[Rfam]
RNA sequence: CGCCGCUGCCCUCCUUGGGCGUUUCCUCCCUAGACUUAAGGGCCGUUCGCUUUCGCGGGCGGCCCCUUUUUUUGGUCUUA
Numbered sequence: 001c002g003c004c005g006c007u008g009c010c011c012u013c014c015u016u017g018g019g020c021g022u023u024u025c026c027u028c029c030c031u032a033g034a035c036u037u038a039a040g041g042g043c044c045g046u047u048c049g050c051u052u053u054c055g056c057g058g059g060c061g062g063c064c065c066c067u068u069u070u071u072u073u074g075g076u077c078u079u080a
Base pairs, nucleotide, nucleotide: 008020009019010018011017040065041064042063043062044061045060046059047058048057
About this RNA: The record is an 80-nucleotide RNA from Hansschlegelia plantiphila, which matches "Makes More Granules Regulator RNA (mmgR)" in Rfam. The literature on the family includes a 2016 paper in Mol Phylogenet Evol by Lagares et al., "Phylogenetic distribution and evolutionary pattern of an alpha-proteobacterial small RNA gene that controls polyhydroxybutyrate accumulation in Sinorhizobium meliloti". NCBI's taxonomy places the organism under Bacteria, Pseudomonadati, Alphaproteobacteria, Hyphomicrobiales, Hansschlegelia. A search with the family's covariance model found it, with a score of 77 bits. Rfam's curators write: SuhB later renamed mmgR (makes more granules regulator) was a putative non-coding RNA found multiple times in the Agrobacterium tumefaciens genome and related alpha-proteobacteria. Other non-coding RNAs uncovered in the same analysis include: speF, ybhL, metA, and serC.Several studies inSinorhizobium meliloti showed that suhB element is indeed a non-coding RNA:firstly it was detected on Northern blot and called Sm8RNA, secondly in an RNAseq study referred to as SmelC689.The mutant phenotype's (strain lacking the small RNA) cytoplasm contains higher content of polyhydroxybutyrate (PBH)storage granules than wild type strain. The sRNA is required to limit the PBH intracellular accumulation when the nitrogen-fixing Sinorhizobium meliloti is under condition of surplus carbon in relation to nitrogen. It has been renamed to mmgR. Further study confirmed that mmgR fine-tunes the regulation of PBH storage.Northern blot confirmed the expression of the sRNA in other rhizobia species.